[Rfam]
RNA sequence: CCGUGCUCUGUGACAGACCGGCGGGCACCCGCCAGUCCGGCGCCAGCCCAGUCUGUCACAGAACACGGCA
Dot-bracket structure: (((((.((((((((.(((.((..(((...............)))..))..))).)))))))).)))))..
Numbered sequence: 001c002c003g004u005g006c007u008c009u010g011u012g013a014c015a016g017a018c019c020g021g022c023g024g025g026c027a028c029c030c031g032c033c034a035g036u037c038c039g040g041c042g043c044c045a046g047c048c049c050a051g052u053c054u055g056u057c058a059c060a061g062a063a064c065a066c067g068g069c070a
Stems, first nucleotide, its partner, number of pairs: 001068005007062008016053003020048002024044003
mir-3017 microRNA precursor family: a 70-nucleotide RNA sequence from Acyrthosiphon pisum. Its family is annotated with RISC complex and miRNA-mediated post-transcriptional gene silencing in the Gene Ontology. The family has 2 seed sequences and 58 matches in Rfam 15.1. A search with the family's covariance model found it, with a score of 52 bits. On this family, see Legeai et al., BMC Genomics 2010: "Bioinformatic prediction, deep sequencing of microRNAs and expression analysis during phenotypic plasticity in the pea aphid, Acyrthosiphon pisum".